[Rfam]
RNA sequence: UAGGCUUGAAAGUGCCAGGCUGUUUCUCUGGAGGAGCCAAGCUCUGGAGAGCAACACUGAAUCCCUGGGAAGAGAGAGCAUGGGGUGUGCUGAUUUAAAAACAGAAAAUGCAAAGUUGGACUGAAAAUAUCCUUAGUCUUCCAAGCAAUCUGCUUAAGGGUUCCAAACUUACCUUAAUUUGGUGAGAAAAGAAGCUGCCCUAUUUUUCUUUCUUCUUCUUCUUCUCCAGGGUUGUUUUAUUGUUUUUAAUG
Numbered sequence: 001u002a003g004g005c006u007u008g009a010a011a012g013u014g015c016c017a018g019g020c021u022g023u024u025u026c027u028c029u030g031g032a033g034g035a036g037c038c039a040a041g042c043u044c045u046g047g048a049g050a051g052c053a054a055c056a057c058u059g060a061a062u063c064c065c066u067g068g069g070a071a072g073a074g075a076g077a078g079c080a081u082g083g084g085g086u087g088u089g090c091u092g093a094u095u096u097a098a099a100a101a102c103a104g105a106a107a108a109u110g111c112a113a114a115g116u117u118g119g120a121c122u123g124a125a126a127a128u129a130u131c132c133u134u135a136g137u138c139u140u141c142c143a144a145g146c147a148a149u150c151u152g153c154u155u156a157a158g159g160g161u162u163c164c165a166a167a168c169u170u171a172c173c174u175u176a177a178u179u180u181g182g183u184g185a186g187a188a189a190a191g192a193a194g195c196u197g198c199c200c201u202a203u204u205u206u207u208c209u210u211u212c213u214u215c216u217u218c219u220u221c222u223u224c225u226c227c228a229g230g231g232u233u234g235u236u237u238u239a240u241u242g243u244u245u246u247u248a249a250u251g
Base pairs, nucleotide, nucleotide: 046244047243049241050240067217068216069215070214071213072212073211074210075209076208077207078206080203081202082201083200084199085198086197087196089195090194091193094190095189096188102152103151104150105149109147110146111145116144117143118142119141120140123138124137168186169185170184171183172182173181
Shown here is a 251-nucleotide RNA sequence from Eschrichtius robustus, a member of the family "Voltage-gated potassium-channel Kv1.4 IRES".
The family's RNA type in Rfam is internal ribosome entry site.
The base pairs follow the family's consensus structure, which was predicted with RNAalifold.
The source organism's lineage runs through Eukaryota, Gnathostomata, Teleostomi, Theria and Eschrichtius.
This family represents the Kv1.4 voltage-gated potassium-channel internal ribosome entry site (IRES). This region has been shown to mediate internal ribosome entry in cells derived from brain, heart, and skeletal muscle, tissues known to express Kv1.4 mRNA species.
Its family is annotated with ribosome binding in the Gene Ontology.